This 109-nucleotide RNA sequence from Falsochrobactrum shanghaiense belongs to the Rfam family "Alphaproteobacterial ar14". For this family Rfam cites "A survey of sRNA families in alpha-proteobacteria" (del Val et al., RNA Biol, 2012).
RNA sequence: AGUCAUUGAGUUCACUCCUCCUCCCAGAACUCAAUACGGAUACGGCACUCCUCCUCCUAAGCCGUAUUCAAGAUCAGGCCGCGCAUCCUCCUCCCGCGCGGCCUUUUUC
Numbered sequence: 001a002g003u004c005a006u007u008g009a010g011u012u013c014a015c016u017c018c019u020c021c022u023c024c025c026a027g028a029a030c031u032c033a034a035u036a037c038g039g040a041u042a043c044g045g046c047a048c049u050c051c052u053c054c055u056c057c058u059a060a061g062c063c064g065u066a067u068u069c070a071a072g073a074u075c076a077g078g079c080c081g082c083g084c085a086u087c088c089u090c091c092u093c094c095c096g097c098g099c100g101g102c103c104u105u106u107u108u109c
Base pairs, nucleotide, nucleotide: 007033008032009031010030011029012028013027038069039068040067041066042065043064044063045062046061076104077103078102079101080100081099082098083097084096